Shown here is a 113-nucleotide RNA from Centaurea solstitialis, a member of the family "MIR396 microRNA precursor family". Gene Ontology terms of the family: miRNA-mediated post-transcriptional gene silencing and RISC complex.

RNA sequence: UUUUCUGUUCUUCCACAGCUUUCUUGAACUGCAUAUGGGUAUUGAUCUUUCAGAUCUUGCUUUAUAUGAAUUCAAUCUUUGCAGUUCAAUAAAGCUGUGGGAAGACAGAGAAA
Numbered sequence: 001u002u003u004u005c006u007g008u009u010c011u012u013c014c015a016c017a018g019c020u021u022u023c024u025u026g027a028a029c030u031g032c033a034u035a036u037g038g039g040u041a042u043u044g045a046u047c048u049u050u051c052a053g054a055u056c057u058u059g060c061u062u063u064a065u066a067u068g069a070a071u072u073c074a075a076u077c078u079u080u081g082c083a084g085u086u087c088a089a090u091a092a093a094g095c096u097g098u099g100g101g102a103a104g105a106c107a108g109a110g111a112a113a
Stems, first nucleotide, its partner, number of pairs: 003110005013100003017096006024089004029084005
Pairs were carried over by alignment from the consensus structure, which was predicted with WAR. Lineage of the source: Eukaryota > Streptophyta > Embryophyta > Magnoliopsida > Centaurea.